Shown here is a 120-nucleotide RNA sequence from Rhizobacter gummiphilus, a member of the family "Betaproteobacteria-1 RNA". The match comes from Rfam's covariance-model search (85 bits).

[Rfam]
RNA sequence: CGCGCAGCCGGGUAGAGACAUGACGACAGCGGCUGCGGGACACCUGGGACUGUGGGGUAGUGCUCUGAGAAUCCGGGCGGGGUGGCGAAGCUAGAGCCCUGGUGCAAACGUCUGGCGGAG
Dot-bracket structure: (.((((((((...............[[[[)))))))).)....(((((.]]]]........{{.{......))))).((((((......[[[[[[))))))}.}}.....]]]]]]....